This 139-nucleotide RNA sequence from Ameiurus melas belongs to the Rfam family "Small nucleolar RNA SNORA29". It is annotated as an H/ACA-box small nucleolar RNA. A search with the family's covariance model found it, with a score of 56 bits. The literature on the family includes a 2001 paper in EMBO J by Huttenhofer et al., "RNomics: an experimental approach that identifies 201 candidates for novel, small, non-messenger RNAs in mouse". Its Rfam clan is "SNORA20 clan".
RNA sequence: AUUCCUGUUGUAGUACCACCCAUGUGCAUCGACGCUCAUGUGUGGCUAUGCUAACAGGAUAGAGGAACCUGCUGUCAGUGUCUGAAGGGGCAGCUGGACAAACCCACUUCCUCUAUAUGUACUGACAGCACAUCACUAC
Numbered sequence: 001a002u003u004c005c006u007g008u009u010g011u012a013g014u015a016c017c018a019c020c021c022a023u024g025u026g027c028a029u030c031g032a033c034g035c036u037c038a039u040g041u042g043u044g045g046c047u048a049u050g051c052u053a054a055c056a057g058g059a060u061a062g063a064g065g066a067a068c069c070u071g072c073u074g075u076c077a078g079u080g081u082c083u084g085a086a087g088g089g090g091c092a093g094c095u096g097g098a099c100a101a102a103c104c105c106a107c108u109u110c111c112u113c114u115a116u117a118u119g120u121a122c123u124g125a126c127a128g129c130a131c132a133u134c135a136c137u138a139c
Base pairs, nucleotide, nucleotide: 004058005057006056007055016045017044018043019042074126075125076124077123092114093113
Dot-bracket structure: ...((((........((((......................)))).........))))...............((((..............((...................))........)))).............